[Rfam]
RNA sequence: GCGGGUGGACGACCUCCCGCCUUUGCCACUGUCCGGGACGACCCG
Numbered sequence: 001g002c003g004g005g006u007g008g009a010c011g012a013c014c015u016c017c018c019g020c021c022u023u024u025g026c027c028a029c030u031g032u033c034c035g036g037g038a039c040g041a042c043c044c045g
Stems, first nucleotide, its partner, number of pairs: 001020005007014002034045004